[Rfam]
The record is an 86-nucleotide RNA from Longimicrobium terrae, which matches "tRNA" in Rfam. A search with the family's covariance model found it, with a score of 54 bits. Rfam describes the family as follows. Transfer RNA (tRNA) molecules are approximately 80 nucleotides in length. The source organism's lineage runs through Bacteria, Pseudomonadati, Gemmatimonadota, Longimicrobiales and Longimicrobium.
RNA sequence: GGACCGGUGUCCGAGCGGCUUAAGGAGCACGAUUGGAAAUCGUGUGGGGUUAAUAGCCCUCGUGGGUUCGAAUCCCACCCGGUCCG
Numbered sequence: 001g002g003a004c005c006g007g008u009g010u011c012c013g014a015g016c017g018g019c020u021u022a023a024g025g026a027g028c029a030c031g032a033u034u035g036g037a038a039a040u041c042g043u044g045u046g047g048g049g050u051u052a053a054u055a056g057c058c059c060u061c062g063u064g065g066g067u068u069c070g071a072a073u074c075c076c077a078c079c080c081g082g083u084c085c086g
Base pairs, nucleotide, nucleotide: 001085002084003083004082005081006080007079010026011025012024028044029043030042031041032040062078063077064076065075066074